This 73-nucleotide sequence from Oryzias latipes belongs to the Rfam family "mir-21 microRNA precursor family".

RNA sequence: UGUCGGCUAGCUUAUCAGACUGGUGUUGGAGGUUCCAUUUGCACGGCAACAACGGUCUGUAAGCUGGCUGACA
Numbered sequence: 001u002g003u004c005g006g007c008u009a010g011c012u013u014a015u016c017a018g019a020c021u022g023g024u025g026u027u028g029g030a031g032g033u034u035c036c037a038u039u040u041g042c043a044c045g046g047c048a049a050c051a052a053c054g055g056u057c058u059g060u061a062a063g064c065u066g067g068c069u070g071a072c073a
Base pairs, nucleotide, nucleotide: 008066009065010064011063012062013061014060015059018057019056020055021054022053024051025050026049027048028047
Record summary: NCBI's taxonomy places the organism under Eukaryota, Ctenosquamata, Acanthomorphata, Adrianichthyidae, Oryzias.